Rfam assigns this 105-nucleotide sequence from Prunus armeniaca to the family "MIR6274 microRNA precursor family". Its family is annotated with RISC complex and miRNA-mediated post-transcriptional gene silencing in the Gene Ontology. A search with the family's covariance model found it, with a score of 92 bits.

[Rfam]
RNA sequence: GGAUAGCACUGUUUUGCUAUCCUCAUCCAAUAACACAAUGACAUGUGGAAAAGUUAUUAUACAUGUCAUUGCGUUAUUGGCUGAGGAUAGCAAAAAGUGUUAUCC
Numbered sequence: 001g002g003a004u005a006g007c008a009c010u011g012u013u014u015u016g017c018u019a020u021c022c023u024c025a026u027c028c029a030a031u032a033a034c035a036c037a038a039u040g041a042c043a044u045g046u047g048g049a050a051a052a053g054u055u056a057u058u059a060u061a062c063a064u065g066u067c068a069u070u071g072c073g074u075u076a077u078u079g080g081c082u083g084a085g086g087a088u089a090g091c092a093a094a095a096a097g098u099g100u101u102a103u104c105c
Stems, first nucleotide, its partner, number of pairs: 002104004012095009022085004027080008036071012049058002